Rfam assigns this 75-nucleotide RNA sequence from Mycobacterium leprae to the family "ASpks TB sRNA". A reference for the family is Arnvig and Young (2009), "Identification of small RNAs in Mycobacterium tuberculosis", Mol Microbiol.

[Rfam]
Nucleotides: 075
Base pairs, nucleotide, nucleotide: 014026016024017023031071032070033069038065039064043060044059045058047056048055049054
Number, partner (000 for none) and nucleotide at each position: 001000c002000u003000u004000a005000a006000u007000u008000g009000a010000g011000c012000c013000c014026a015000c016024c017023c018000a019000c020000a021000a022000c023017g024016g025000c026014u027000g028000g029000u030000c031071u032070g033069c034000c035000g036000g037000a038065c039064g040000u041000c042000c043060c044059u045058g046000c047056c048055c049054a050000u051000a052000c053000g054049u055048g056047g057000c058045c059044a060043g061000c062000a063000a064039u065038g066000c067000c068000u069033g070032c071031g072000c073000u074000u075000c